RNA sequence: CGGGGGCAUGGUGGACUCCCCGUGAGGCUUCUUGCCCAAGUUCCGC
Numbered sequence: 001c002g003g004g005g006g007c008a009u010g011g012u013g014g015a016c017u018c019c020c021c022g023u024g025a026g027g028c029u030u031c032u033u034g035c036c037c038a039a040g041u042u043c044c045g046c
Stems, first nucleotide, its partner, number of pairs: 001022006011046005026036003